DUF3800-X RNA: a 71-nucleotide RNA sequence from Archaeoglobus sulfaticallidus. Pairs were carried over by alignment from the consensus structure, which is taken from published work. The source organism's lineage runs through Archaea, Archaeoglobi, Archaeoglobales, Archaeoglobus and Archaeoglobus sulfaticallidus.
RNA sequence: UAUGGGGUAAGUCCCACCGAAACGAUGAGGCCUCCUUGAGGAGGGUGGGAUGGAGUAGGUGGGGUCCCGUU
Numbered sequence: 001u002a003u004g005g006g007g008u009a010a011g012u013c014c015c016a017c018c019g020a021a022a023c024g025a026u027g028a029g030g031c032c033u034c035c036u037u038g039a040g041g042a043g044g045g046u047g048g049g050a051u052g053g054a055g056u057a058g059g060u061g062g063g064g065u066c067c068c069g070u071u
Base pairs, nucleotide, nucleotide: 002070003069004068005067006066012064013063014062015061016060017059018058031044032043033042034041035040